[Rfam]
This 96-nucleotide RNA from Laticauda laticaudata belongs to the Rfam family "mir-210 microRNA precursor family".
Pairs were carried over by alignment from the consensus structure, which was predicted with WAR.
NCBI's taxonomy places the organism under Eukaryota, Deuterostomia, Amniota, Squamata, Laticauda.
A reference for the family is Cai et al. (2005), "Kaposi's sarcoma-associated herpesvirus expresses an array of viral microRNAs in latently infected cells", Proc Natl Acad Sci U S A.
Rfam 15.1 lists 790 matches to the family in 722 species.
RNA sequence: CCGAGAAGCAGGUUAGCCGCUGUCACACGCACAGUGGGGACAUAGCAGCACAAUGUGCGUUAGUCAGUGGCUCACCUGCUUCUGGAGAAUUAAUCA
Numbered sequence: 001c002c003g004a005g006a007a008g009c010a011g012g013u014u015a016g017c018c019g020c021u022g023u024c025a026c027a028c029g030c031a032c033a034g035u036g037g038g039g040a041c042a043u044a045g046c047a048g049c050a051c052a053a054u055g056u057g058c059g060u061u062a063g064u065c066a067g068u069g070g071c072u073c074a075c076c077u078g079c080u081u082c083u084g085g086a087g088a089a090u091u092a093a094u095c096a
Base pairs, nucleotide, nucleotide: 005082006081007080008079009078010077011076012075015072016071017070018069019068020067021066022065024063025061028059029058030057031056032055033054035052036051